[Rfam]
RNA sequence: GCCAAAUGAUGUUCAUUAGAUGACAUUAGCACUCAGUGCAAAGAUGACCUUCAUCUAUCACCCCAGGCUGAUGGCU
Numbered sequence: 001g002c003c004a005a006a007u008g009a010u011g012u013u014c015a016u017u018a019g020a021u022g023a024c025a026u027u028a029g030c031a032c033u034c035a036g037u038g039c040a041a042a043g044a045u046g047a048c049c050u051u052c053a054u055c056u057a058u059c060a061c062c063c064c065a066g067g068c069u070g071a072u073g074g075c076u
Stems, first nucleotide, its partner, number of pairs: 001075004029039004
RNA: Small nucleolar RNA SNORD83
Organism: Glaucidium brasilianum